[Rfam]
RNA sequence: GCCGGGAGUCGUGGCAGGCUCUUGUAAACCAGCUUCUAGGUGGCUUAGGAUGAGGAAGGUCUGCCUGUCGGAUUAACACUUGUCUGUCUGGUGUCGUUGACCGAGCGUCCGUGUCAAGCGUAGCGUCGAUAGGCCAUCAGUUGGGGAACCUCCUGAUGACCGGUCGUAGUCAGUUCUCUGACUUAUAAAGAGAGAUGGAUGGCUCAGGCCCGUGAGGGAGCAGGCAAAAGUCUCCGCGCUAUGACAGUGACCGGAUGGCGCACGCGAGGCGUUGGAUUUCAAGUGCCGGCAGUAUAUGGUCUCACUCAUUCUUUU
Numbered sequence: 001g002c003c004g005g006g007a008g009u010c011g012u013g014g015c016a017g018g019c020u021c022u023u024g025u026a027a028a029c030c031a032g033c034u035u036c037u038a039g040g041u042g043g044c045u046u047a048g049g050a051u052g053a054g055g056a057a058g059g060u061c062u063g064c065c066u067g068u069c070g071g072a073u074u075a076a077c078a079c080u081u082g083u084c085u086g087u088c089u090g091g092u093g094u095c096g097u098u099g100a101c102c103g104a105g106c107g108u109c110c111g112u113g114u115c116a117a118g119c120g121u122a123g124c125g126u127c128g129a130u131a132g133g134c135c136a137u138c139a140g141u142u143g144g145g146g147a148a149c150c151u152c153c154u155g156a157u158g159a160c161c162g163g164u165c166g167u168a169g170u171c172a173g174u175u176c177u178c179u180g181a182c183u184u185a186u187a188a189a190g191a192g193a194g195a196u197g198g199a200u201g202g203c204u205c206a207g208g209c210c211c212g213u214g215a216g217g218g219a220g221c222a223g224g225c226a227a228a229a230g231u232c233u234c235c236g237c238g239c240u241a242u243g244a245c246a247g248u249g250a251c252c253g254g255a256u257g258g259c260g261c262a263c264g265c266g267a268g269g270c271g272u273u274g275g276a277u278u279u280c281a282a283g284u285g286c287c288g289g290c291a292g293u294a295u296a297u298g299g300u301c302u303c304a305c306u307c308a309u310u311c312u313u314u315u
Base pairs, nucleotide, nucleotide: 001044002043003042004023005022006021007020008019009018010017028041029040030039047312048311049310050309051308052307053306054305057302058301059300060299061298065292066291067290068289069288070287071286077285078284079283080282081281082280086277087276088275089274090273091272092271093270094269095268097266102264103263105261106260107259108258109254110253113251114250115249116248118245119243120242121241122240123239124238125237126236127166128165129164130163132161133160135158136157137156138155139154140153143150144149167190192234193233194232195231196230202225203224204223209218210217211216
The record is a 315-nucleotide sequence from Strongyloides ratti, which matches "Metazoan signal recognition particle RNA" in Rfam. The family is grouped with related families in Rfam's "SRP clan". The signal recognition particle (SRP) is a universally conserved ribonucleoprotein. It is involved in the co-translational targeting of proteins to membranes. The eukaryotic SRP consists of a 300-nucleotide 7S RNA and six proteins: SRPs 72, 68, 54, 19, 14, and 9. Pairs were carried over by alignment from the consensus structure, which is taken from published work. A search with the family's covariance model found it, with a score of 174 bits.